[Rfam]
RNA sequence: UCGGCAGCAAAGAUGGGCCGACACUGUCAGGGAGCGUCGGCUUUCUUGACGCCCCCUCGUAUCUAUGUUGCUCAAAGGAGGAUGUAGCUAUGAGAA
Numbered sequence: 001u002c003g004g005c006a007g008c009a010a011a012g013a014u015g016g017g018c019c020g021a022c023a024c025u026g027u028c029a030g031g032g033a034g035c036g037u038c039g040g041c042u043u044u045c046u047u048g049a050c051g052c053c054c055c056c057u058c059g060u061a062u063c064u065a066u067g068u069u070g071c072u073c074a075a076a077g078g079a080g081g082a083u084g085u086a087g088c089u090a091u092g093a094g095a096a
Stems, first nucleotide, its partner, number of pairs: 001021005008015002031055002034052007056094006063087007071080003
Dot-bracket structure: (((((..((....)).))))).........((.(((((((.....))))))).))((((((.(((((((.(((....)))))))))).))))))..
Description: A member of the RNA family "Repression of heat shock gene expression (ROSE) element" from Rhizobium giardinii, 96 nucleotides long. Gene Ontology terms of the family: response to temperature stimulus and regulation of translation. The literature on the family includes a 2001 paper in Nucleic Acids Res by Nocker et al., "A mRNA-based thermosensor controls expression of rhizobial heat shock genes". Rfam describes the family as follows. This family represents a 5' UTR cis-regulatory element found in heat shock mRNAs and is known as the ROSE (repression of heat shock gene expression) element. The ROSE element is a negative regulator of heat shock gene expression. It is annotated as an RNA thermoregulator. The base pairs follow the family's consensus structure, which is taken from published work. The family has 13 seed sequences and 381 matches in Rfam 15.1.